This 77-nucleotide RNA sequence from Falsiroseomonas bella belongs to the Rfam family "Makes More Granules Regulator RNA (mmgR)".
[Rfam]
RNA sequence: UCUCUCUGCCGUGUGACUGGCGUUUCCUCCCUAAACUCGGGCCGCGCCCUUGGGGUGCGGCCCGUCUUUUCUUUACC
Numbered sequence: 001u002c003u004c005u006c007u008g009c010c011g012u013g014u015g016a017c018u019g020g021c022g023u024u025u026c027c028u029c030c031c032u033a034a035a036c037u038c039g040g041g042c043c044g045c046g047c048c049c050u051u052g053g054g055g056u057g058c059g060g061c062c063c064g065u066c067u068u069u070u071c072u073u074u075a076c077c
Stems, first nucleotide, its partner, number of pairs: 008021003040062009

Its Rfam clan is "suhB sRNA clan". NCBI's taxonomy places the organism under Bacteria, Pseudomonadati, Alphaproteobacteria, Roseomonadaceae, Falsiroseomonas. A reference for the family is Corbino et al. (2005), "Evidence for a second class of S-adenosylmethionine riboswitches and other regulatory RNA motifs in alpha-proteobacteria", Genome Biol.